Shown here is an 81-nucleotide RNA from Vibrio maritimus, a member of the family "RpsF leader". The organism belongs to Vibrio, within Bacteria. It scores 48 bits against the family's covariance model. The family's RNA type in Rfam is cis-regulatory leader. From the family's description: Conserved and widely distributed to many bacterial species RNA structure. It precedes operon containing rpsF, which encodes ribosomal protein S6. For this family Rfam cites "An S6:S18 complex inhibits translation of E. coli rpsF" (Babina et al., RNA, 2015).

[Rfam]
RNA sequence: UCGGUCUUAUUAUUCGUUCCUUGCUUCCUCUGGAUGACCGACCAACUGUGGAAGCUAAUAAUCCGUAAGGAGCAACCAAUG
Numbered sequence: 001u002c003g004g005u006c007u008u009a010u011u012a013u014u015c016g017u018u019c020c021u022u023g024c025u026u027c028c029u030c031u032g033g034a035u036g037a038c039c040g041a042c043c044a045a046c047u048g049u050g051g052a053a054g055c056u057a058a059u060a061a062u063c064c065g066u067a068a069g070g071a072g073c074a075a076c077c078a079a080u081g
Stems, first nucleotide, its partner, number of pairs: 016073007023055006031044003